Background: The record is a 51-nucleotide RNA sequence, which matches "Xanthine riboswitch aptamer (NMT1 RNA)" in Rfam. The base pairs follow the family's consensus structure, which is taken from published work. For this family Rfam cites "Insights into xanthine riboswitch structure and metal ion-mediated ligand recognition" (Xu et al., Nucleic Acids Res, 2021). The sequence is in the family's curated seed alignment.
RNA sequence: AAUGUGAGUAGAAGCUGUCAGGGGGCAUUACCCCAGGUCAUUGCUCAGUUU
Numbered sequence: 001a002a003u004g005u006g007a008g009u010a011g012a013a014g015c016u017g018u019c020a021g022g023g024g025g026c027a028u029u030a031c032c033c034c035a036g037g038u039c040a041u042u043g044c045u046c047a048g049u050u051u
Stems, first nucleotide, its partner, number of pairs: 005047006015036001019037001021034004